[Rfam]
RNA sequence: UGGGAGGUGAACCUUGGACUGUCUGGAGCAGUGGCCUGUCCUUUACUAGCCCUCCCCAGAGCAUCCCUGCUCUCCAUUGACUGGGGCGACGUGAGGGAAAUCGCCACAGACAGAUACGGAGCGGACACCU
Numbered sequence: 001u002g003g004g005a006g007g008u009g010a011a012c013c014u015u016g017g018a019c020u021g022u023c024u025g026g027a028g029c030a031g032u033g034g035c036c037u038g039u040c041c042u043u044u045a046c047u048a049g050c051c052c053u054c055c056c057c058a059g060a061g062c063a064u065c066c067c068u069g070c071u072c073u074c075c076a077u078u079g080a081c082u083g084g085g086g087c088g089a090c091g092u093g094a095g096g097g098a099a100a101u102c103g104c105c106a107c108a109g110a111c112a113g114a115u116a117c118g119g120a121g122c123g124g125a126c127a128c129c130u
Stems, first nucleotide, its partner, number of pairs: 002056006016041002021036001023034001067124007081109003086104004

Description: Small Cajal body specific RNA 8: a 130-nucleotide RNA sequence from Synaphobranchus kaupii. Gene Ontology terms of the family: Cajal body, nucleolus and RNA processing. It is annotated as a small Cajal body RNA. A search with the family's covariance model found it, with a score of 90 bits.